The family of this 181-nucleotide sequence from Adiantum capillus-veneris is "Antisense RNA which regulates isiA expression". For this family Rfam cites "An internal antisense RNA regulates expression of the photosynthesis gene isiA" (Duhring et al., Proc Natl Acad Sci U S A, 2006).
RNA sequence: GGUAGUCAAAGAUAAUGUUGGGGUUUAGAGUAAGAUUUGUAAUUUCUCUUACAUCUCCACCAUCGGGUGCCCAUGUAUCAUACAACCCUCCAAAAUAGAGUGCUUUGAAAAUGAAAGCCCCAAAACCUAGUAAUAUUAGAGGAGUAACAAGAAUUAUAGUCAUCUUAUUUUUAUCCUUCCA
Numbered sequence: 001g002g003u004a005g006u007c008a009a010a011g012a013u014a015a016u017g018u019u020g021g022g023g024u025u026u027a028g029a030g031u032a033a034g035a036u037u038u039g040u041a042a043u044u045u046c047u048c049u050u051a052c053a054u055c056u057c058c059a060c061c062a063u064c065g066g067g068u069g070c071c072c073a074u075g076u077a078u079c080a081u082a083c084a085a086c087c088c089u090c091c092a093a094a095a096u097a098g099a100g101u102g103c104u105u106u107g108a109a110a111a112u113g114a115a116a117g118c119c120c121c122a123a124a125a126c127c128u129a130g131u132a133a134u135a136u137u138a139g140a141g142g143a144g145u146a147a148c149a150a151g152a153a154u155u156a157u158a159g160u161c162a163u164c165u166u167a168u169u170u171u172u173a174u175c176c177u178u179c180c181a
Stems, first nucleotide, its partner, number of pairs: 139178005147172001149170003